[Rfam]
RNA sequence: GCCUGCAAAUUGCCAAAACUUAUUCGCAAGUACGGACGAGUACGGGGGAUGUUUUUUACGAAAAGGGGCUAAGCCAGUUUUCGUUUGGGGCGAAUCGUCCAGCGGGACGUAGGGUUAUAUCCAAGAUCCAAAUCCGACAGCUAACCUCGUAGGCAAUCAUUAGAGUGCCA
Numbered sequence: 001g002c003c004u005g006c007a008a009a010u011u012g013c014c015a016a017a018a019c020u021u022a023u024u025c026g027c028a029a030g031u032a033c034g035g036a037c038g039a040g041u042a043c044g045g046g047g048g049a050u051g052u053u054u055u056u057u058a059c060g061a062a063a064a065g066g067g068g069c070u071a072a073g074c075c076a077g078u079u080u081u082c083g084u085u086u087g088g089g090g091c092g093a094a095u096c097g098u099c100c101a102g103c104g105g106g107a108c109g110u111a112g113g114g115u116u117a118u119a120u121c122c123a124a125g126a127u128c129c130a131a132a133u134c135c136g137a138c139a140g141c142u143a144a145c146c147u148c149g150u151a152g153g154c155a156a157u158c159a160u161u162a163g164a165g166u167g168c169c170a
Stems, first nucleotide, its partner, number of pairs: 011155004018041003042150006052087001088135003096109004112129004

c-di-AMP riboswitch aptamer (ydaO/yuaA leader): a 170-nucleotide RNA from Paenibacillus sp. J2TS4. The match comes from Rfam's covariance-model search (74 bits). The pairing is the family consensus, mapped onto this sequence.